RNA sequence: ACGCCGUUCCGAGCGGCGUCCACGGCUCUUCCUGAGGGCCCGUGCGGCGGGGGUGGUGCCGUGUCGGCGCAGCACCACCCCCGCGUC
Numbered sequence: 001a002c003g004c005c006g007u008u009c010c011g012a013g014c015g016g017c018g019u020c021c022a023c024g025g026c027u028c029u030u031c032c033u034g035a036g037g038g039c040c041c042g043u044g045c046g047g048c049g050g051g052g053g054u055g056g057u058g059c060c061g062u063g064u065c066g067g068c069g070c071a072g073c074a075c076c077a078c079c080c081c082c083g084c085g086u087c
Base pairs, nucleotide, nucleotide: 001019002018003017004016005015006014007013021044022043023042024041025040026038027037028036029035030034047084048083049082050081051080052079053078054077055076056075057074058073059072061070062069063068
RNA: Streptomyces RNA 6106